[Rfam]
RNA sequence: AGUGCAAAUGAUGAUAAACAGACAGGGACAUCAGAAUACCUUUUAGGUUUUUAGGAUGAUUUGUCAAUGGGAAUCUCUUUGAUGCACU
Numbered sequence: 001a002g003u004g005c006a007a008a009u010g011a012u013g014a015u016a017a018a019c020a021g022a023c024a025g026g027g028a029c030a031u032c033a034g035a036a037u038a039c040c041u042u043u044u045a046g047g048u049u050u051u052u053a054g055g056a057u058g059a060u061u062u063g064u065c066a067a068u069g070g071g072a073a074u075c076u077c078u079u080u081g082a083u084g085c086a087c088u
Stems, first nucleotide, its partner, number of pairs: 002087005
Rfam assigns this 88-nucleotide sequence from Daucus carota to the family "Small nucleolar RNA R44/J54/Z268 family".
Rfam links the family to the GO terms nucleolus and RNA processing.
The match comes from Rfam's covariance-model search (75 bits).